[Rfam]
The family of this 127-nucleotide RNA from Molossus molossus is "Small nucleolar RNA SNORA25". The organism belongs to Molossus, within Eukaryota. Rfam's curators write: ACA25 is a member of the H/ACA class of snoRNA that guide the sites of modification of uridines to pseudouridines. Rfam links the family to the GO terms RNA processing and nucleolus. Rfam classes the family as an H/ACA-box small nucleolar RNA.

RNA sequence: AAGUCAUUUCAAAGAGAGUUAAUGGGACCAAAGCCAGGAGCUCUUAAUACUGUGACCUAGGAUGGAAGUUCUCUAUAGGAUGUAACAGAUACUCAACAGUGCUAUAUUUUCCUGAAGAGAUAUAAGG
Dot-bracket structure: ..(((((......(((((((..(..(........).).)))))))......))))).............(((((..((((....(.((.((((....)))))).)....))))..))))).......